Rfam assigns this 64-nucleotide sequence from Pyrobaculum islandicum to the family "Pyrobaculum sRNA 209". The base pairs follow the family's consensus structure. NCBI's taxonomy places the organism under Archaea, Thermoproteati, Thermoproteota, Pyrobaculum, Pyrobaculum islandicum. From the family's description: Non canonical pseudouridylation guide sRNA features. It is annotated as an H/ACA-box small nucleolar RNA.
RNA sequence: GGCAGGAUCAGUCCCCGAGACGGCCGUAGGCCGCCUAUGAAAGGGGCUCCGGACAACUACGCAA
Numbered sequence: 001g002g003c004a005g006g007a008u009c010a011g012u013c014c015c016c017g018a019g020a021c022g023g024c025c026g027u028a029g030g031c032c033g034c035c036u037a038u039g040a041a042a043g044g045g046g047c048u049c050c051g052g053a054c055a056a057c058u059a060c061g062c063a064a
Base pairs, nucleotide, nucleotide: 010048011047012046013045014044015043021033022032023031024030025029